The family of this 84-nucleotide RNA from Sphaerotilus montanus is "SucA RNA motif". A search with the family's covariance model found it, with a score of 81 bits. A reference for the family is Weinberg et al. (2007), "Identification of 22 candidate structured RNAs in bacteria using the CMfinder comparative genomics pipeline", Nucleic Acids Res. Lineage of the source: Bacteria > Pseudomonadota > Betaproteobacteria > Burkholderiales > Sphaerotilus. It is annotated as a cis-regulatory element.
RNA sequence: UCGCGAUCCGCCAAUCGGUUUAGCCGUGUCGCGGAAGGUUGUCCAACCCAUCGGAGCCCCGGAUACCAGGGCGCAAGGUGAGCG
Numbered sequence: 001u002c003g004c005g006a007u008c009c010g011c012c013a014a015u016c017g018g019u020u021u022a023g024c025c026g027u028g029u030c031g032c033g034g035a036a037g038g039u040u041g042u043c044c045a046a047c048c049c050a051u052c053g054g055a056g057c058c059c060c061g062g063a064u065a066c067c068a069g070g071g072c073g074c075a076a077g078g079u080g081a082g083c084g
Stems, first nucleotide, its partner, number of pairs: 002084003007035005016026004037048004049080004056072004061067002